Source information:
The record is a 97-nucleotide sequence from Lawsonibacter faecis, which matches "Purine riboswitch aptamer" in Rfam. Its family is annotated with purine nucleobase biosynthetic process in the Gene Ontology. Lineage of the source: Bacteria > Bacillati > Eubacteriales > Oscillospiraceae > Lawsonibacter.
RNA sequence: UCAAAACUGAAUGCAGGAACUUAUAUAGGCCCGAGAUUGGUCGGGCGUCUCUACCAGUUGCCGUAACAGCUGCGCUAUGAGUUCCCGGUAAACGGCC
Numbered sequence: 001u002c003a004a005a006a007c008u009g010a011a012u013g014c015a016g017g018a019a020c021u022u023a024u025a026u027a028g029g030c031c032c033g034a035g036a037u038u039g040g041u042c043g044g045g046c047g048u049c050u051c052u053a054c055c056a057g058u059u060g061c062c063g064u065a066a067c068a069g070c071u072g073c074g075c076u077a078u079g080a081g082u083u084c085c086c087g088g089u090a091a092a093c094g095g096c097c
Base pairs, nucleotide, nucleotide: 018083019082020081021080022079023078024077025076029046030045031044032043033042034041055072056071057070058069059068060067